This 99-nucleotide sequence from Sciurus vulgaris belongs to the Rfam family "Small nucleolar RNA SNORD116". Taxonomically the source falls in Sciurus (Eukaryota, Opisthokonta, Craniata, Gnathostomata). The family has 48 seed sequences and 3,260 matches in Rfam 15.1. Its family is annotated with RNA processing and nucleolus in the Gene Ontology.
[Rfam]
RNA sequence: UUAUCAAGAAUAAUACACAGAAAGGGGCAAUAACUUCUUGGAAAUCUGAACAAAGUGAGUGAACACCUCCAUACUGUCAUUUUCAUCAAACUGAGGUUC
Numbered sequence: 001u002u003a004u005c006a007a008g009a010a011u012a013a014u015a016c017a018c019a020g021a022a023a024g025g026g027g028c029a030a031u032a033a034c035u036u037c038u039u040g041g042a043a044a045u046c047u048g049a050a051c052a053a054a055g056u057g058a059g060u061g062a063a064c065a066c067c068u069c070c071a072u073a074c075u076g077u078c079a080u081u082u083u084c085a086u087c088a089a090a091c092u093g094a095g096g097u098u099c
Stems, first nucleotide, its partner, number of pairs: 003097003033060004038053003